About this RNA
Shown here is a 60-nucleotide RNA sequence from Lentivirus simimdef, a member of the family "Trans-activation response element (TAR)". NCBI's taxonomy places the organism under Viruses, Revtraviricetes, Retroviridae, Lentivirus, Lentivirus simimdef. By type it is a microRNA precursor. It is one of the family's seed sequences. On this family, see Ouellet et al., Nucleic Acids Res 2008: "Identification of functional microRNAs released through asymmetrical processing of HIV-1 TAR element". This family represents the HIV trans-activation response (TAR) element which is known to be required for the trans-activation of the viral promoter and for virus replication. The TAR hairpin acts as a binding site for the Tat protein and this interaction stimulates the activity of the long terminal repeat promoter. Further experiments have shown that TAR acts as a miRNA that protects against apoptosis. Gene Ontology terms of the family: RISC complex and miRNA-mediated post-transcriptional gene silencing.
RNA sequence: GGGUCUCUUUCACUGGACCAGAUUUGAGCCUGGGAGCUCUCUACCAGUGAAGGAACCCAC
Numbered sequence: 001g002g003g004u005c006u007c008u009u010u011c012a013c014u015g016g017a018c019c020a021g022a023u024u025u026g027a028g029c030c031u032g033g034g035a036g037c038u039c040u041c042u043a044c045c046a047g048u049g050a051a052g053g054a055a056c057c058c059a060c
Stems, first nucleotide, its partner, number of pairs: 001058004006054009016045001020042003026039004
Dot-bracket structure: ((((.(((((((((.(...(((...((((......)))))))..))))))))))))))..